The family of this 70-nucleotide sequence from Diatraea saccharalis is "mir-11 microRNA precursor family". The organism belongs to Diatraea, within Eukaryota. Gene Ontology terms of the family: RISC complex, miRNA-mediated post-transcriptional gene silencing and cellular response to gamma radiation. A search with the family's covariance model found it, with a score of 69 bits.

RNA sequence: UUUCGUGGCUAGCACUCCGGCUGUGAAUUGUGUUCACUGUCACAUCACAGUCAGAGUUCUAGCUACGCGA
Number, nucleotide and partner (000 for none) at each position: 001u000002u000003u000004c067005g066006u065007g000008g000009c062010u061011a060012g059013c000014a057015c056016u055017c054018c000019g000020g000021c050022u049023g048024u047025g046026a045027a000028u000029u000030g043031u042032g041033u000034u000035c000036a000037c000038u000039g000040u000041c032042a031043c030044a000045u026046c025047a024048c023049a022050g021051u000052c000053a000054g017055a016056g015057u014058u000059c012060u011061a010062g009063c000064u000065a006066c005067g004068c000069g000070a000